RNA sequence: AGUCGAGGAUGAACAAUGUUUAAGAGUAGUGGACAGAAGAGAUUUCUGAUUAACAAAACGCUGAGACU
Numbered sequence: 001a002g003u004c005g006a007g008g009a010u011g012a013a014c015a016a017u018g019u020u021u022a023a024g025a026g027u028a029g030u031g032g033a034c035a036g037a038a039g040a041g042a043u044u045u046c047u048g049a050u051u052a053a054c055a056a057a058a059c060g061c062u063g064a065g066a067c068u
Stems, first nucleotide, its partner, number of pairs: 001068004
Rfam assigns this 68-nucleotide RNA from Merluccius polli to the family "Small nucleolar RNA SNORD75". The source organism's lineage runs through Eukaryota, Vertebrata, Osteoglossocephalai, Acanthomorphata and Merluccius. Its family is annotated with RNA processing and nucleolus in the Gene Ontology. A reference for the family is Galardi et al. (2002), "Purified box C/D snoRNPs are able to reproduce site-specific 2'-O-methylation of target RNA in vitro", Mol Cell Biol. The base pairs follow the family's consensus structure, which was predicted with RNAalifold.